[Rfam]
This 95-nucleotide RNA sequence from Halobacillus sp. BBL2006 belongs to the Rfam family "Glycine riboswitch aptamer". The match comes from Rfam's covariance-model search (41 bits).
RNA sequence: CUCUGGAGAGAGUUUACACUGAGUAAACCACCCAAGAAGCAAGCGGCUGCAAGGGCUACAUAAGGGUCGUGAAACUUUCUGGUGAAUGGACAGAG
Numbered sequence: 001c002u003c004u005g006g007a008g009a010g011a012g013u014u015u016a017c018a019c020u021g022a023g024u025a026a027a028c029c030a031c032c033c034a035a036g037a038a039g040c041a042a043g044c045g046g047c048u049g050c051a052a053g054g055g056c057u058a059c060a061u062a063a064g065g066g067u068c069g070u071g072a073a074a075c076u077u078u079c080u081g082g083u084g085a086a087u088g089g090a091c092a093g094a095g
Stems, first nucleotide, its partner, number of pairs: 001095005012028004030083003034078001037077003043070006